[Rfam]
RNA sequence: AGGGCUGGAAGAGGUGCGUUAUUCAGGUAGCUAAGUUGAGGAGAGCAAACUCCGUUAACACUUAGUGAGGGGAAUUAACGCCGAGAAAAAUCCGUAUUUGCUUUGCGGAUCUUUCGGGCGCUUGGGCUGAAUCCCAGCGACUGUCACCAACAUAUUUGGUGGAGAGCUUCUGGUCUU
Numbered sequence: 001a002g003g004g005c006u007g008g009a010a011g012a013g014g015u016g017c018g019u020u021a022u023u024c025a026g027g028u029a030g031c032u033a034a035g036u037u038g039a040g041g042a043g044a045g046c047a048a049a050c051u052c053c054g055u056u057a058a059c060a061c062u063u064a065g066u067g068a069g070g071g072g073a074a075u076u077a078a079c080g081c082c083g084a085g086a087a088a089a090a091u092c093c094g095u096a097u098u099u100g101c102u103u104u105g106c107g108g109a110u111c112u113u114u115c116g117g118g119c120g121c122u123u124g125g126g127c128u129g130a131a132u133c134c135c136a137g138c139g140a141c142u143g144u145c146a147c148c149a150a151c152a153u154a155u156u157u158g159g160u161g162g163a164g165a166g167c168u169u170c171u172g173g174u175c176u177u
Stems, first nucleotide, its partner, number of pairs: 006172006016081006023074001030066007085115004090110007116142002119139004124135003144162007
RNA: Lysine riboswitch aptamer